[Rfam]
RNA sequence: AACUUGUACGUGCGAUAAAAAGUUCAUACCUAGGAGUCAGCUGAGACCAUAGUAUCCCGAAGCACCAAUGGGAAAAGGGU
Numbered sequence: 001a002a003c004u005u006g007u008a009c010g011u012g013c014g015a016u017a018a019a020a021a022g023u024u025c026a027u028a029c030c031u032a033g034g035a036g037u038c039a040g041c042u043g044a045g046a047c048c049a050u051a052g053u054a055u056c057c058c059g060a061a062g063c064a065c066c067a068a069u070g071g072g073a074a075a076a077g078g079g080u
Stems, first nucleotide, its partner, number of pairs: 001023001004020002007017002009014001037044002046080003055073005
RNA: Group II catalytic intron D1-D4-1